[Rfam]
RNA sequence: AAGCACGUCAAAGUGGCGCGUGUUAUGUCGGAAAUAUGAAAAGGAUCAUAUCACAGCCAGCUUUGAUGUGCUUGA
Numbered sequence: 001a002a003g004c005a006c007g008u009c010a011a012a013g014u015g016g017c018g019c020g021u022g023u024u025a026u027g028u029c030g031g032a033a034a035u036a037u038g039a040a041a042a043g044g045a046u047c048a049u050a051u052c053a054c055a056g057c058c059a060g061c062u063u064u065g066a067u068g069u070g071c072u073u074g075a
Base pairs, nucleotide, nucleotide: 005069006068007067008066009065010064011063012062013061014059015058016057017056020054021053022052026050027049028048
RNA: mir-2 microRNA precursor family